[Rfam]
RNA sequence: UUCUUAUCACGAGAGGUGGAGGGACUGGCCCUUUGAAACCUCAGCAACCAGUCGAAAUGACAUGGUGCUAAAUCCAGCAAGCAAAUCGCUUGGAAGAUAAGAA
Numbered sequence: 001u002u003c004u005u006a007u008c009a010c011g012a013g014a015g016g017u018g019g020a021g022g023g024a025c026u027g028g029c030c031c032u033u034u035g036a037a038a039c040c041u042c043a044g045c046a047a048c049c050a051g052u053c054g055a056a057a058u059g060a061c062a063u064g065g066u067g068c069u070a071a072a073u074c075c076a077g078c079a080a081g082c083a084a085a086u087c088g089c090u091u092g093g094a095a096g097a098u099a100a101g102a103a
Stems, first nucleotide, its partner, number of pairs: 001103008013042005021031003025077004043069004048065002051061004073095001078092005